Shown here is a 235-nucleotide RNA from Oceanospirillum multiglobuliferum, a member of the family "Burkholderia sRNA Bp1_Cand871_SIPHT". Taxonomically the source falls in Oceanospirillum (Bacteria, Pseudomonadota, Gammaproteobacteria, Oceanospirillales). Rfam links the family to the GO term bacterial biofilm matrix.
RNA sequence: UCGCCCACAAUGGCCUUCAACGGUUUCAACAUGGAUGUGUCGGCGGUUGGGUUGUUGCAAAAGGAUUGCAGCAAGGCAAAGGCCGAUUGGCUACCGACUGGUUUCGGGCAUCUUUGUUGGAGUCGUUGUCGCUGGCAGUGGUUGGUUGUGGCUGUGCGGCGGCUCCUUCGUUGGUCUCCUCGCGCUAACCCCGUAGCGUGUGGUUUUUAGCGGGCUAUCAAGCCCGCUUUUUUUU
Numbered sequence: 001u002c003g004c005c006c007a008c009a010a011u012g013g014c015c016u017u018c019a020a021c022g023g024u025u026u027c028a029a030c031a032u033g034g035a036u037g038u039g040u041c042g043g044c045g046g047u048u049g050g051g052u053u054g055u056u057g058c059a060a061a062a063g064g065a066u067u068g069c070a071g072c073a074a075g076g077c078a079a080a081g082g083c084c085g086a087u088u089g090g091c092u093a094c095c096g097a098c099u100g101g102u103u104u105c106g107g108g109c110a111u112c113u114u115u116g117u118u119g120g121a122g123u124c125g126u127u128g129u130c131g132c133u134g135g136c137a138g139u140g141g142u143u144g145g146u147u148g149u150g151g152c153u154g155u156g157c158g159g160c161g162g163c164u165c166c167u168u169c170g171u172u173g174g175u176c177u178c179c180u181c182g183c184g185c186u187a188a189c190c191c192c193g194u195a196g197c198g199u200g201u202g203g204u205u206u207u208u209a210g211c212g213g214g215c216u217a218u219c220a221a222g223c224c225c226g227c228u229u230u231u232u233u234u235u
Stems, first nucleotide, its partner, number of pairs: 005174003019127013033113006039077003043072001045067004052060003082091003094107004130156003178203002181200007209228008